This 167-nucleotide sequence from Paenibacillus anaericanus belongs to the Rfam family "c-di-AMP riboswitch aptamer (ydaO/yuaA leader)". The pairing is the family consensus, mapped onto this sequence.
RNA sequence: GAGGAACACACGCUGAAUUACCGCGUUCCGCGGGAAACGGGGGAACCAUCAGGCCGAUAAGGCCUACUGGGGUGAAUCCGAAGGAGAUGAUUUGUAGUCUCAUAAGGUAGGGCGACUCUCACCGCCCGAAUCCGACAGCUAACCUCGUAAGCGCAUAGAGAGAGACC
Numbered sequence: 001g002a003g004g005a006a007c008a009c010a011c012g013c014u015g016a017a018u019u020a021c022c023g024c025g026u027u028c029c030g031c032g033g034g035a036a037a038c039g040g041g042g043g044a045a046c047c048a049u050c051a052g053g054c055c056g057a058u059a060a061g062g063c064c065u066a067c068u069g070g071g072g073u074g075a076a077u078c079c080g081a082a083g084g085a086g087a088u089g090a091u092u093u094g095u096a097g098u099c100u101c102a103u104a105a106g107g108u109a110g111g112g113c114g115a116c117u118c119u120c121a122c123c124g125c126c127c128g129a130a131u132c133c134g135a136c137a138g139c140u141a142a143c144c145u146c147g148u149a150a151g152c153g154c155a156u157a158g159a160g161a162g163a164g165a166c167c
Stems, first nucleotide, its partner, number of pairs: 011153004018036002037148006047069002070133003078107002110127004